[Rfam]
A member of the RNA family "Bacterial large subunit ribosomal RNA" from Alteraurantiacibacter aestuarii, 588 nucleotides of a longer RNA. The family's consensus secondary structure is taken from published work. A search with the family's covariance model found it, with a score of 2683 bits.
RNA sequence: CCCGCGGUUAGACGGAAAGACCCCGUGCACCUUUACUGCAGCUUCAGAGUGGCAUUAGGAAAGAGUUGUGUAGCAUAGGUGGGAGGCUUUGAAACUUGGGCGCCAGUCCGAGUGGAGCCAUAGGUGAAAUACCACCCUGCUGUUUUCUGAUGUCUAACUAACUACCGUUAUCCGGUAGUAGGACCCUCUGUGGCGGGUAGUUUGACUGGGGCGGUCGCCUCCUAAAGAGUAACGGAGGCGCGCGAUGGUAGGCUCAGGCCGGUUGGAAACCGGCUGCGAGAGUGCAAUGGCAUAAGCCUGCCUGACUGCGAGACUGACGAGUCGAGCAGAGACGAAAGUCGGUCAUAGUGAUCCGGUGGUCCCUCGUGGAAGGGCCAUCGCUCAACGGAUAAAAGGUACGCCGGGGAUAACAGGCUGAUACUGCCCAAGAGCUCAUAUCGACGGCAGUGUUUGGCACCUCGAUGUCGGCUCAUCACAUCCUGGGGCUGGAGCAGGUCCCAAGGGUUUGGCUGUUCGCCAAUUAAAGUGGUACGUGAGCUGGGUUCAGAACGUCGCGAGACAGUUUGGUCCCUAUCUGCCGUGGGCGUC
Numbered sequence: 001c002c003c004g005c006g007g008u009u010a011g012a013c014g015g016a017a018a019g020a021c022c023c024c025g026u027g028c029a030c031c032u033u034u035a036c037u038g039c040a041g042c043u044u045c046a047g048a049g050u051g052g053c054a055u056u057a058g059g060a061a062a063g064a065g066u067u068g069u070g071u072a073g074c075a076u077a078g079g080u081g082g083g084a085g086g087c088u089u090u091g092a093a094a095c096u097u098g099g100g101c102g103c104c105a106g107u108c109c110g111a112g113u114g115g116a117g118c119c120a121u122a123g124g125u126g127a128a129a130u131a132c133c134a135c136c137c138u139g140c141u142g143u144u145u146u147c148u149g150a151u152g153u154c155u156a157a158c159u160a161a162c163u164a165c166c167g168u169u170a171u172c173c174g175g176u177a178g179u180a181g182g183a184c185c186c187u188c189u190g191u192g193g194c195g196g197g198u199a200g201u202u203u204g205a206c207u208g209g210g211g212c213g214g215u216c217g218c219c220u221c222c223u224a225a226a227g228a229g230u231a232a233c234g235g236a237g238g239c240g241c242g243c244g245a246u247g248g249u250a251g252g253c254u255c256a257g258g259c260c261g262g263u264u265g266g267a268a269a270c271c272g273g274c275u276g277c278g279a280g281a282g283u284g285c286a287a288u289g290g291c292a293u294a295a296g297c298c299u300g301c302c303u304g305a306c307u308g309c310g311a312g313a314c315u316g317a318c319g320a321g322u323c324g325a326g327c328a329g330a331g332a333c334g335a336a337a338g339u340c341g342g343u344c345a346u347a348g349u350g351a352u353c354c355g356g357u358g359g360u361c362c363c364u365c366g367u368g369g370a371a372g373g374g375c376c377a378u379c380g381c382u383c384a385a386c387g388g389a390u391a392a393a394a395g396g397u398a399c400g401c402c403g404g405g406g407a408u409a410a411c412a413g414g415c416u417g418a419u420a421c422u423g424c425c426c427a428a429g430a431g432c433u434c435a436u437a438u439c440g441a442c443g444g445c446a447g448u449g450u451u452u453g454g455c456a457c458c459u460c461g462a463u464g465u466c467g468g469c470u471c472a473u474c475a476c477a478u479c480c481u482g483g484g485g486c487u488g489g490a491g492c493a494g495g496u497c498c499c500a501a502g503g504g505u506u507u508g509g510c511u512g513u514u515c516g517c518c519a520a521u522u523a524a525a526g527u528g529g530u531a532c533g534u535g536a537g538c539u540g541g542g543u544u545c546a547g548a549a550c551g552u553c554g555c556g557a558g559a560c561a562g563u564u565u566g567g568u569c570c571c572u573a574u575c576u577g578c579c580g581u582g583g584g585c586g587u588c
Stems, first nucleotide, its partner, number of pairs: 001584008010576003014571002022405004027401002029397005035201004042193002045190004051154012064141003068137001078136005085119003094113008158181003162178006204216004217239006240386001242343002248301006254281002257275006282291002306329004312323003331340003354380007362373002414455003418452001419449007429439002466541001467539004471533001472530005479504002482499006506520005547565004551560003